Record summary
A member of the RNA family "Small nucleolar RNA SNORD14" from Hibiscus syriacus, 124 nucleotides long. Rfam 15.1 lists 4,559 matches to the family in 936 species. Rfam describes the family as follows. U14 small nucleolar RNA (U14 snoRNA) is required for early cleavages of eukaryotic precursor rRNAs. In yeasts, this molecule possess a stem-loop region (known as the Y-domain) which is essential for function. A similar structure, but with a different consensus sequence, is found in plants, but is absent in vertebrates. The organism belongs to Hibiscus, within Eukaryota. The family's consensus secondary structure was predicted with PFOLD.

[Rfam]
RNA sequence: GGUCGAUGAUGACAAUUCUUAAGGCUUGUUUCUCAAAACAUUCGCAGUGGCCGCCUGAGAGCUUUCGCCUUUGCCAGGCUUGAGAGCUUAUGCUGUUCUAUUCCUUCCUUGGAUGUCUGAGACC
Number, nucleotide and partner (000 for none) at each position: 001g124002g123003u122004c121005g000006a000007u000008g000009a000010u000011g000012a000013c000014a000015a000016u000017u000018c000019u000020u000021a000022a000023g000024g000025c000026u000027u000028g000029u000030u000031u000032c000033u000034c000035a000036a000037a000038a000039c000040a000041u000042u000043c000044g000045c000046a000047g000048u000049g000050g000051c000052c000053g000054c000055c000056u000057g000058a000059g000060a000061g087062c086063u085064u084065u083066c082067g000068c000069c000070u000071u000072u000073g000074c000075c000076a000077g000078g000079c000080u000081u000082g066083a065084g064085a063086g062087c061088u000089u000090a000091u000092g000093c000094u000095g000096u000097u000098c000099u000100a000101u000102u000103c000104c000105u000106u000107c000108c000109u000110u000111g000112g000113a000114u000115g000116u000117c000118u000119g000120a000121g004122a003123c002124c001